[Rfam]
RNA sequence: CUGCAUGUUAAACCAAGAGCUGUGGCUUGAUAAAUAGCCACAGGAUCUCCAACUACAUGCAAAAACAAGGUGGAGGGACUUUGACAGCUCGGCCUGCUGCGCCUGUGGUUGUCACUCGACUCUCCUACACUC
Numbered sequence: 001c002u003g004c005a006u007g008u009u010a011a012a013c014c015a016a017g018a019g020c021u022g023u024g025g026c027u028u029g030a031u032a033a034a035u036a037g038c039c040a041c042a043g044g045a046u047c048u049c050c051a052a053c054u055a056c057a058u059g060c061a062a063a064a065a066c067a068a069g070g071u072g073g074a075g076g077g078a079c080u081u082u083g084a085c086a087g088c089u090c091g092g093c094c095u096g097c098u099g100c101g102c103c104u105g106u107g108g109u110u111g112u113c114a115c116u117c118g119a120c121u122c123u124c125c126u127a128c129a130c131u132c
Base pairs, nucleotide, nucleotide: 013043019038020037021036022035023034072125073124074123075122076121077120087112088111090105091103092102
Rfam assigns this 132-nucleotide RNA sequence from Sphenodon punctatus to the family "Small nucleolar RNA SNORA44". By type it is an H/ACA-box small nucleolar RNA. Gene Ontology terms of the family: RNA processing and nucleolus. Taxonomically the source falls in Sphenodon (Eukaryota, Opisthokonta, Chordata, Gnathostomata). Rfam describes the family as follows. ACA44 is a member of the H/ACA class of snoRNA that guide the sites of modification of uridines to pseudouridines.